This 113-nucleotide sequence from Capsicum baccatum belongs to the Rfam family "Plastid-psbA-1 3UTR RNA".

RNA sequence: UCGAAGCUCUAUCAACAAAUGGAUAAGACUCCAGUCUAGUCUAUAGUAGGUUUUGAAAAGAAAGGAGCAAUAGUCAUUUUCUUGUUUUAUCAAGAGGGUGCUACUGCUCUCUU
Numbered sequence: 001u002c003g004a005a006g007c008u009c010u011a012u013c014a015a016c017a018a019a020u021g022g023a024u025a026a027g028a029c030u031c032c033a034g035u036c037u038a039g040u041c042u043a044u045a046g047u048a049g050g051u052u053u054u055g056a057a058a059a060g061a062a063a064g065g066a067g068c069a070a071u072a073g074u075c076a077u078u079u080u081c082u083u084g085u086u087u088u089a090u091c092a093a094g095a096g097g098g099u100g101c102u103a104c105u106g107c108u109c110u111c112u113u
Stems, first nucleotide, its partner, number of pairs: 008023005061113002064110006071103003075100003079096005
The base pairs follow the family's consensus structure, which was predicted with LocARNA.
Rfam describes the family as follows. Plastid psbA-1 is a non-coding RNA (ncRNA) present in plastids. It was identified in inverted repeat sequences in the 3 prime untranslate region (3UTR) of photosystem II quinone-binding protein (psbA).
Its Rfam clan is "Plastid-psbA 3UTR RNA clan".
The organism belongs to Capsicum, within Eukaryota.